A member of the RNA family "TPP riboswitch aptamer (THI element)" from Agrilactobacillus composti, 103 nucleotides long. Taxonomically the source falls in Agrilactobacillus composti (Bacteria, Bacillati, Bacilli, Lactobacillales). About the family: Vitamin B(1) in its active form thiamin pyrophosphate (TPP) is an essential coenzyme that is synthesised by coupling of pyrimidine and thiazole moieties in bacteria.

Nucleotides: 103
Stems, first nucleotide, its partner, number of pairs: 007090003011054004017025002032048007059084004065078004
Number, partner (000 for none) and nucleotide at each position: 001000g002000u003000a004000c005000a006000c007090u008089u009088a010000u011054a012053g013052g014051g015000g016000a017025g018024c019000u020000u021000u022000g023000u024018g025017c026000u027000g028000a029000g030000a031000g032048g033047a034046a035045a036044g037043u038042a039000a040000u041000c042038u043037g044036c045035u046034u047033u048032c049000g050000a051014c052013c053012c054011u055000u056000c057000g058000a059084c060083c061082u062081g063000a064000u065078a066077u067076g068075g069000g070000u071000a072000a073000u074000g075068c076067c077066a078065u079000c080000g081062u082061a083060g084059g085000a086000a087000u088009u089008a090007a091000u092000u093000c094000a095000u096000g097000c098000a099000a100000u101000u102000u103000a